[Rfam]
RNA sequence: GAUAAUAUUUAGCAAACCUAUCGAAAGAUAGGGACGCAAAGCUAUGGGUCUAAGGUUGAAUAACUAUGAUUGCCAGGUUGCCGUU
Numbered sequence: 001g002a003u004a005a006u007a008u009u010u011a012g013c014a015a016a017c018c019u020a021u022c023g024a025a026a027g028a029u030a031g032g033g034a035c036g037c038a039a040a041g042c043u044a045u046g047g048g049u050c051u052a053a054g055g056u057u058g059a060a061u062a063a064c065u066a067u068g069a070u071u072g073c074c075a076g077g078u079u080g081c082c083g084u085u
Stems, first nucleotide, its partner, number of pairs: 012037002017032006040079004045075003048070003055064003
Dot-bracket structure: ...........((...((((((....))))))...))..((((.((((((....(((....)))...)))..)))))))......

A member of the RNA family "c-di-GMP-I riboswitch aptamer" from Anaeromonas frigoriresistens, 85 nucleotides long.
It scores 79 bits against the family's covariance model.
About the family: GEMM was predicted in a large-scale screen for bacterial structured RNA regulatory elements.